[Rfam]
RNA sequence: CACAGUAGCAGCGAUAGUCGGGUGUGACACCCGACGGCCUUACGAGCAAGGGUUCCUCGGCACUGCUAAUCAGCCGAGGGUUAGUCGAUCCUAAGUCUCGCCGUAACUCGACCGAGACAACAGGGAAGCUGGUUAAUAUUCCAGCACCGCCACACAUUGAAAGUCGACGCUUUGGGGACAACCGAGCCGGGCUUUCGCCCGGUCGAAUCGAGUACAUCCGUGGAAGCCGUAAUGGCAGGAAGCGGACGACCCUCGAGACAGCGCAAGUCGGUCGUACCUAGAGCCCGUGAAAAGACGAGUGUGGUGAUCGUACCGAGAUCCGACACAGGUGCUCUGCCGGCGAAAGGCAAGGCCCGU
Numbered sequence: 001c002a003c004a005g006u007a008g009c010a011g012c013g014a015u016a017g018u019c020g021g022g023u024g025u026g027a028c029a030c031c032c033g034a035c036g037g038c039c040u041u042a043c044g045a046g047c048a049a050g051g052g053u054u055c056c057u058c059g060g061c062a063c064u065g066c067u068a069a070u071c072a073g074c075c076g077a078g079g080g081u082u083a084g085u086c087g088a089u090c091c092u093a094a095g096u097c098u099c100g101c102c103g104u105a106a107c108u109c110g111a112c113c114g115a116g117a118c119a120a121c122a123g124g125g126a127a128g129c130u131g132g133u134u135a136a137u138a139u140u141c142c143a144g145c146a147c148c149g150c151c152a153c154a155c156a157u158u159g160a161a162a163g164u165c166g167a168c169g170c171u172u173u174g175g176g177g178a179c180a181a182c183c184g185a186g187c188c189g190g191g192c193u194u195u196c197g198c199c200c201g202g203u204c205g206a207a208u209c210g211a212g213u214a215c216a217u218c219c220g221u222g223g224a225a226g227c228c229g230u231a232a233u234g235g236c237a238g239g240a241a242g243c244g245g246a247c248g249a250c251c252c253u254c255g256a257g258a259c260a261g262c263g264c265a266a267g268u269c270g271g272u273c274g275u276a277c278c279u280a281g282a283g284c285c286c287g288u289g290a291a292a293a294g295a296c297g298a299g300u301g302u303g304g305u306g307a308u309c310g311u312a313c314c315g316a317g318a319u320c321c322g323a324c325a326c327a328g329g330u331g332c333u334c335u336g337c338c339g340g341c342g343a344a345a346g347g348c349a350a351g352g353c354c355c356g357u
Base pairs, nucleotide, nucleotide: 017035018034019033020032021031022030036354037353038352039351044334045333046332047331050314051313055079056078057077058076059075060074064072065071086310087309088308090124091123095118096117097116098115099114100113102110103109128145129144130143131142132141148306149305150304151303152302153301154300155299163296164295165294169284170283171282172281173280174279175278176277181272182271183270184269186203187202188201189200190199208256209255210254211253217246218245219244220243221242226236227235228234262267320329321328335349336348337347338346
The family of this 357-nucleotide part of an RNA from Haloplanus salinarum is "Archaeal large subunit ribosomal RNA".